The family of this 375-nucleotide part of an RNA from Verticillium dahliae is "Ascomycota telomerase RNA". For this family Rfam cites "The common ancestral core of vertebrate and fungal telomerase RNAs" (Qi et al., Nucleic Acids Res, 2013). Clan: Telomerase clan. Lineage of the source: Eukaryota > leotiomyceta > Hypocreomycetidae > Glomerellales > Verticillium dahliae.
[Rfam]
RNA sequence: AAACAUACAGAAAGAACUUUGCACGACCACAUCUGAUGGAUUCUCCUGCCCUCUGAAGCCGCCGAUCGUCAUGCAACAUUGUCGAAAUGACAGUCUUGGUUUAGUUGUGGAGGCUGCAUACGCUUCUCGACGCUCGCGUCUGGGCAAGUAGCGAUUGAGAGGUGGGCGACGUCAGACUGGGACCCAUCUUGAGUUGGUGUCAAAGUUCCGCGCUUGUCCGGCCUGGUGGCGGCUGCCUCGGAUGUACUAUUCUGCCCAAGCGAGAGCUCGAGUCAAUCCCCUUGGACCCCGUUGUGGGUGGACAGGCCUAAUUGGAGGGCAGUCCAGGUUGUCGUCGCUCCAGUAAUGGCGAGACGGCAACCCCCUCGAUGCAGG
Numbered sequence: 001a002a003a004c005a006u007a008c009a010g011a012a013a014g015a016a017c018u019u020u021g022c023a024c025g026a027c028c029a030c031a032u033c034u035g036a037u038g039g040a041u042u043c044u045c046c047u048g049c050c051c052u053c054u055g056a057a058g059c060c061g062c063c064g065a066u067c068g069u070c071a072u073g074c075a076a077c078a079u080u081g082u083c084g085a086a087a088u089g090a091c092a093g094u095c096u097u098g099g100u101u102u103a104g105u106u107g108u109g110g111a112g113g114c115u116g117c118a119u120a121c122g123c124u125u126c127u128c129g130a131c132g133c134u135c136g137c138g139u140c141u142g143g144g145c146a147a148g149u150a151g152c153g154a155u156u157g158a159g160a161g162g163u164g165g166g167c168g169a170c171g172u173c174a175g176a177c178u179g180g181g182a183c184c185c186a187u188c189u190u191g192a193g194u195u196g197g198u199g200u201c202a203a204a205g206u207u208c209c210g211c212g213c214u215u216g217u218c219c220g221g222c223c224u225g226g227u228g229g230c231g232g233c234u235g236c237c238u239c240g241g242a243u244g245u246a247c248u249a250u251u252c253u254g255c256c257c258a259a260g261c262g263a264g265a266g267c268u269c270g271a272g273u274c275a276a277u278c279c280c281c282u283u284g285g286a287c288c289c290c291g292u293u294g295u296g297g298g299u300g301g302a303c304a305g306g307c308c309u310a311a312u313u314g315g316a317g318g319g320c321a322g323u324c325c326a327g328g329u330u331g332u333c334g335u336c337g338c339u340c341c342a343g344u345a346a347u348g349g350c351g352a353g354a355c356g357g358c359a360a361c362c363c364c365c366u367c368g369a370u371g372c373a374g375g
Stems, first nucleotide, its partner, number of pairs: 181201003184197003203215004